[Rfam]
Nucleotides: 206
Base pairs, nucleotide, nucleotide: 012190013189014188018049019048020047021046022045050186051185052184053183054182055181060068061067069171070170071169077147078146079145080144081143082142150165151164152163153162
Number, partner (000 for none) and nucleotide at each position: 001000a002000a003000g004000g005000u006000a007000a008000g009000u010000c011000a012190g013189c014188c015000u016000a017000a018049u019048c020047u021046u022045g023000g024000c025000u026000u027000c028000a029000u030000c031000a032000c033000u034000u035000c036000g037000a038000g039000a040000u041000g042000a043000a044000g045022c046021g047020a048019g049018a050186g051185c052184g053183g054182a055181g056000g057000a058000a059000c060068c061067a062000c063000u064000u065000u066000u067061u068060g069171g070170g071169g072000c073000g074000a075000a076000u077147c078146c079145u080144g081143a082142g083000u084000u085000g086000a087000u088000a089000g090000u091000a092000c093000g094000c095000a096000a097000g098000u099000u100000g101000a102000g103000c104000c105000a106000u107000u108000g109000a110000g111000g112000a113000g114000u115000g116000a117000u118000u119000u120000u121000g122000c123000c124000u125000u126000c127000u128000c129000u130000u131000g132000c133000g134000u135000a136000u137000c138000g139000c140000u141000c142082u143081u144080c145079a146078g147077g148000a149000a150165g151164g152163g153162c154000a155000c156000c157000u158000c159000u160000c161000a162153g163152c164151c165150c166000u167000a168000g169071u170070c171069c172000g173000u174000c175000a176000g177000c178000u179000a180000a181055c182054u183053c184052c185051g186050u187000c188014g189013g190012c191000a192000u193000u194000g195000a196000g197000g198000g199000g200000a201000g202000a203000c204000u205000g206000a
Source information
The family of this 206-nucleotide sequence from Synechococcales cyanobacterium M55_K2018_004 is "c-di-AMP riboswitch aptamer (ydaO/yuaA leader)". The source organism's lineage runs through Bacteria, Bacillati, Cyanobacteriota, Cyanophyceae and Synechococcales. Its family is annotated with cyclic-di-AMP binding and regulation of gene expression in the Gene Ontology.